[Rfam]
RNA: Small nucleolar RNA SNORA23
RNA sequence: UGAAUGGUGUGCGUAGUGUCCGUCUGCGUUUAGUGCCGUCUCCGGUCUGUGUCUUACAGGCUGUGGGACGGUUCUCACACCGCACUCACGGCCACAGAGCCACCGGAGAUCAUAGUACUGGCCUAGUGUUGUCUAAAUGACCAUCCACCACUGACCAGCCUCCAUAGUCUCCAACAAAA
Dot-bracket structure: ..........(...............(((.(.(.(((((.(((((..(((.....)))..))).)).)))))..).).)).)......)...............(((((........((((.(.((((.((((.....)).)).....))))).)))).........))))).......